The record is a 254-nucleotide part of an RNA from a Nitrosopumilaceae archaeon, which matches "Archaeal large subunit ribosomal RNA" in Rfam.
Lineage of the source: Archaea > Nitrososphaerota > Nitrososphaeria > Nitrosopumilales > Nitrosopumilaceae.
It scores 2658 bits against the family's covariance model.
Nucleotides: 254
Stems, first nucleotide, its partner, number of pairs: 005110013020042004026036003046053002058078004065071002081094004113252002116249001120242006129218011140206001142174004149166007178203004184198001186197002220230003
Number, partner (000 for none) and nucleotide at each position: 001000g002000a003000g004000c005110u006109a007108g008107c009106c010105g011104u012103c013102a014101u015100g016099g017098c018000g019000a020042g021041c022040c023039u024000a025000a026036g027035c028034c029000g030000a031000a032000g033000a034028g035027g036026c037000g038000g039023a040022g041021g042020c043000g044000a045000a046053g047052g048000g049000a050000a051000a052047c053046c054000g055000a056000g057000u058078u059077c060076u061075c062000g063000c064000a065071g066070c067000a068000u069000u070066g071065c072000g073000a074000g075061g076060a077059g078058a079000a080000g081094c082093g083092u084091g085000u086000g087000a088000a089000a090000g091084u092083g093082c094081g095000u096000g097000a098017g099016u100015c101014a102013u103012g104011g105010c106009g107008g108007u109006u110005a111000g112000g113252c114251u115000a116249g117000a118000a119000g120242c121241c122240a123239g124238u125237c126000g127000a128000u129218c130217u131216a132215u133214u134213c135212c136211u137210g138209a139208g140206c141000u142174a143173g144172a145171u146000g147000a148000a149166g150165g151164c152163g153162g154161g155160c156000g157000a158000a159000a160155g161154c162153c163152c164151g165150c166149u167000g168000g169000a170000g171145g172144u173143c174142u175000u176000a177000a178203g179202a180201c181200g182000u183000u184198c185000u186197g187196a188000c189000g190000u191000g192000c193000a194000a195000a196187u197186c198184g199000u200181u201180g202179u203178u204000g205000u206140g207000a208139c209138u210137u211136g212135g213134g214133a215132a216131u217130a218129g219000g220230g221229g222228u223000c224000a225000a226000a227000a228222a229221c230220c231000a232000a233000u234000c235000u236000a237125g238124a239123c240122u241121g242120g243000c244000g245000c246000u247000c248000g249116c250000u251114a252113g253000u254000u